[Rfam]
RNA sequence: UAUGGACCCAUUCAAUUGGGUGGCUACGCCGGGCGCCGAUCCCCCGGCCAACC
Number, nucleotide and partner (000 for none) at each position: 001u000002a000003u000004g000005g000006a021007c020008c019009c018010a017011u000012u000013c000014a000015a000016u000017u010018g009019g008020g007021u006022g000023g000024c000025u000026a000027c000028g048029c047030c046031g045032g044033g043034c000035g000036c000037c000038g000039a000040u000041c000042c000043c033044c032045c031046g030047g029048c028049c000050a000051a000052c000053c000